The family of this 59-nucleotide sequence from Microvirga guangxiensis is "terC RNA".
The family's consensus secondary structure is taken from published work.

RNA sequence: AAUCGGUAACCGGGCCCCUCUGGCAGGCGAGAAAGCGCCUGUGAUGUCGGAACCGAUGC
Numbered sequence: 001a002a003u004c005g006g007u008a009a010c011c012g013g014g015c016c017c018c019u020c021u022g023g024c025a026g027g028c029g030a031g032a033a034a035g036c037g038c039c040u041g042u043g044a045u046g047u048c049g050g051a052a053c054c055g056a057u058g059c
Stems, first nucleotide, its partner, number of pairs: 006053002010050004023042007